This 67-nucleotide sequence from Bombyx mori belongs to the Rfam family "mir-2774 microRNA precursor family". The base pairs follow the family's consensus structure, which was predicted with RNAalifold. A search with the family's covariance model found it, with a score of 60 bits.
[Rfam]
RNA sequence: ACAACAUUCGGACCGUCGAUCCACCGAGCAAAACCAUCCUUUCGGUGGAAGAUCUACCCUCCAUCGU
Numbered sequence: 001a002c003a004a005c006a007u008u009c010g011g012a013c014c015g016u017c018g019a020u021c022c023a024c025c026g027a028g029c030a031a032a033a034c035c036a037u038c039c040u041u042u043c044g045g046u047g048g049a050a051g052a053u054c055u056a057c058c059c060u061c062c063a064u065c066g067u
Base pairs, nucleotide, nucleotide: 004064010058011057015053016052017051020049021048022047023046024045025044026043027042028041
Rfam links the family to the GO terms RISC complex and miRNA-mediated post-transcriptional gene silencing.